[Rfam]
RNA sequence: AUGUCGAAAAGGCAAACUCAUUGAAAGAUGAGGACGCAAAGCCACGGGUCUAAGGUUCCAUGGGAAUGAUGAUAGCCGGGUUACCGAA
Numbered sequence: 001a002u003g004u005c006g007a008a009a010a011g012g013c014a015a016a017c018u019c020a021u022u023g024a025a026a027g028a029u030g031a032g033g034a035c036g037c038a039a040a041g042c043c044a045c046g047g048g049u050c051u052a053a054g055g056u057u058c059c060a061u062g063g064g065a066a067u068g069a070u071g072a073u074a075g076c077c078g079g080g081u082u083a084c085c086g087a088a
Base pairs, nucleotide, nucleotide: 012037013036017032018031019030020029021028022027040082041081042080043079045078046077047076048073049072050071055067056066057065058064
The family of this 88-nucleotide RNA sequence from Aneurinibacillus danicus is "c-di-GMP-I riboswitch aptamer".
A search with the family's covariance model found it, with a score of 87 bits.
A reference for the family is Sudarsan et al. (2008), "Riboswitches in Eubacteria Sense the Second Messenger Cyclic Di-GMP", Science.
The source organism's lineage runs through Bacteria, Bacilli, Caryophanales, Paenibacillaceae and Aneurinibacillus.
The base pairs follow the family's consensus structure, which is taken from published work.